RNA sequence: GUCGCAACUUCGUAAGCCGUAGCAGAAGCAUUCAUGGUACGGUCGGUCAGAUUCCAACGAAUCUGCAAAUUCUGCU
Numbered sequence: 001g002u003c004g005c006a007a008c009u010u011c012g013u014a015a016g017c018c019g020u021a022g023c024a025g026a027a028g029c030a031u032u033c034a035u036g037g038u039a040c041g042g043u044c045g046g047u048c049a050g051a052u053u054c055c056a057a058c059g060a061a062u063c064u065g066c067a068a069a070u071u072c073u074g075c076u
Stems, first nucleotide, its partner, number of pairs: 016043003021076007028040001030038001048065007